[Rfam]
RNA sequence: GGGUGCUUAGGACUGUCUGUCUUAAGCAUAGAGUGGUAUGGCAGAUAGGAAAAAGCCCCACCUGAUAUUAAAUCAAGGUGAGGCCAACCCUCAUACGCAGCAGUGUGAGGUUAGCCUCUUCCCCGUUGCAAAACAAGGAAAAGGAAAACCAAA
Numbered sequence: 001g002g003g004u005g006c007u008u009a010g011g012a013c014u015g016u017c018u019g020u021c022u023u024a025a026g027c028a029u030a031g032a033g034u035g036g037u038a039u040g041g042c043a044g045a046u047a048g049g050a051a052a053a054a055g056c057c058c059c060a061c062c063u064g065a066u067a068u069u070a071a072a073u074c075a076a077g078g079u080g081a082g083g084c085c086a087a088c089c090c091u092c093a094u095a096c097g098c099a100g101c102a103g104u105g106u107g108a109g110g111u112u113a114g115c116c117u118c119u120u121c122c123c124c125g126u127u128g129c130a131a132a133a134c135a136a137g138g139a140a141a142a143g144g145a146a147a148a149c150c151a152a153a
Base pairs, nucleotide, nucleotide: 001059002058003057005056006055007054008053013048014047015046016045017044018043019042020041021040023038026034027033060079061078062077063076064074065073066072080118081117082116083115084114087112089110090109091108092107093106094105095104122144123143126140127139
The record is a 153-nucleotide sequence from Hafnia alvei, which matches "sok antitoxin (CssrC)" in Rfam. By type it is an antitoxin RNA. About the family: Also identified in Shigella as CssrC. The organism belongs to Hafnia alvei, within Bacteria. The base pairs follow the family's consensus structure, which is taken from published work.